The family of this 121-nucleotide RNA sequence from Quadrisphaera granulorum is "SAM (S-adenosyl methionine) riboswitch aptamer". On this family, see Weinberg et al., RNA 2008: "The aptamer core of SAM-IV riboswitches mimics the ligand-binding site of SAM-I riboswitches".

[Rfam]
Nucleotides: 121
Stems, first nucleotide, its partner, number of pairs: 001079004009038001011037006021030002039066003044062003048057001082110005088104001090102004
Number, partner (000 for none) and nucleotide at each position: 001079g002078g003077u004076c005000a006000u007000g008000a009038g010000c011037g012036u013035c014034a015033g016032c017000a018000a019000c020000a021030a022029g023000c024000c025000c026000u027000g028000g029022c030021u031000a032016g033015c034014u035013g036012a037011c038009c039066g040065g041064c042000a043000a044062c045061c046060c047000u048057c049000g050000c051000u052000c053000u054000g055000c056000g057048g058000c059000g060046g061045g062044g063000u064041g065040c066039c067000c068000c069000a070000g071000g072000u073000g074000a075000c076004g077003a078002c079001c080000c081000g082110a083109c084108c085107g086106g087000a088104c089000u090102c091101c092100g093099c094000a095000c096000c097000a098000c099093g100092c101091g102090g103000c104088g105000c106086c107085c108084g109083g110082u111000a112000a113000g114000c115000g116000c117000g118000a119000g120000g121000c
A search with the family's covariance model found it, with a score of 96 bits. The source organism's lineage runs through Bacteria, Bacillati, Actinomycetota, Actinomycetes and Quadrisphaera. SAM-IV is a mRNA element that regulates gene expression via direct sensing of S-adenosylmethionine (SAM or AdoMet). SAM-IV riboswitches share conserved nucleotide positions with the previously described SAM-I riboswitches sequence analysis and molecular recognition experiments suggest that SAM-I and SAM-IV riboswitches share similar ligand binding sites, but have different scaffolds.